RNA sequence: GCGGAGGUGGUGGAACGGCAGACACGCAUGCUUCAGGCGCAUGUGCCCGUACGGGUGUGAGGGUUCAAAUCCCUUCCUCCGCA
Numbered sequence: 001g002c003g004g005a006g007g008u009g010g011u012g013g014a015a016c017g018g019c020a021g022a023c024a025c026g027c028a029u030g031c032u033u034c035a036g037g038c039g040c041a042u043g044u045g046c047c048c049g050u051a052c053g054g055g056u057g058u059g060a061g062g063g064u065u066c067a068a069a070u071c072c073c074u075u076c077c078u079c080c081g082c083a
Stems, first nucleotide, its partner, number of pairs: 001082007010025003027043005059075005
RNA: tRNA
Organism: Streptococcus sanguinis